[Rfam]
RNA sequence: UGGCUGUAAUGGUCGCAAGGCGAAGAAGAUAUCAAUAUCCCAUACUUCUCCACCCAUUUCUGCCGCAAGGCAAUCACCAACAGUGCCCAGUCCGAACAUGGCGGUAACUCCCCACUCGUGCAGGCAACUCACGAUGCUGGCGGGGUUUUAAGCGAUGGGGGAAAUAGAGUGAGGGAGGUUUCACUCUGCAGCUCAUCCCCCACCGUGGUGUGGCGGUAUUGGAAUACGCUCGUUGUGUGGUUUGGGUGUUGAGUUUGGGUUGAGCGUCAACUUCAUUUUUUGCCUUUU
Numbered sequence: 001u002g003g004c005u006g007u008a009a010u011g012g013u014c015g016c017a018a019g020g021c022g023a024a025g026a027a028g029a030u031a032u033c034a035a036u037a038u039c040c041c042a043u044a045c046u047u048c049u050c051c052a053c054c055c056a057u058u059u060c061u062g063c064c065g066c067a068a069g070g071c072a073a074u075c076a077c078c079a080a081c082a083g084u085g086c087c088c089a090g091u092c093c094g095a096a097c098a099u100g101g102c103g104g105u106a107a108c109u110c111c112c113c114a115c116u117c118g119u120g121c122a123g124g125c126a127a128c129u130c131a132c133g134a135u136g137c138u139g140g141c142g143g144g145g146u147u148u149u150a151a152g153c154g155a156u157g158g159g160g161g162a163a164a165u166a167g168a169g170u171g172a173g174g175g176a177g178g179u180u181u182c183a184c185u186c187u188g189c190a191g192c193u194c195a196u197c198c199c200c201c202a203c204c205g206u207g208g209u210g211u212g213g214c215g216g217u218a219u220u221g222g223a224a225u226a227c228g229c230u231c232g233u234u235g236u237g238u239g240g241u242u243u244g245g246g247u248g249u250u251g252a253g254u255u256u257g258g259g260u261u262g263a264g265c266g267u268c269a270a271c272u273u274c275a276u277u278u279u280u281u282g283c284c285u286u287u288u
Stems, first nucleotide, its partner, number of pairs: 001015004017286008026276001028274002036262002039259003046253003051248006063070002075239003078235004083229003087222005092216003096211004101206004106147001108145004112140003116134005122129002148152001156202007167194004175186003